[Rfam]
RNA sequence: ACAUAUUCCAAGUUUGUGCGUGAAUCGGACCCUAUAGGAACCAUCGAUUUUUCUUAAUCGUCCGCAUCCGACGGUGUUAGAUUCACGCACAAACUCGGGAUCUGUCU
Numbered sequence: 001a002c003a004u005a006u007u008c009c010a011a012g013u014u015u016g017u018g019c020g021u022g023a024a025u026c027g028g029a030c031c032c033u034a035u036a037g038g039a040a041c042c043a044u045c046g047a048u049u050u051u052u053c054u055u056a057a058u059c060g061u062c063c064g065c066a067u068c069c070g071a072c073g074g075u076g077u078u079a080g081a082u083u084c085a086c087g088c089a090c091a092a093a094c095u096c097g098g099g100a101u102c103u104g105u106c107u
Stems, first nucleotide, its partner, number of pairs: 001105003005101003011095016028078003032074002

A member of the RNA family "MIR403 microRNA precursor family" from Carya illinoinensis, 107 nucleotides long. A reference for the family is Mica et al. (2009), "High throughput approaches reveal splicing of primary microRNA transcripts and tissue specific expression of mature microRNAs in Vitis vinifera", BMC Genomics. The family's consensus secondary structure was predicted with WAR. NCBI's taxonomy places the organism under Eukaryota, Tracheophyta, Magnoliopsida, Mesangiospermae, Carya. The family has 13 seed sequences and 215 matches in Rfam 15.1.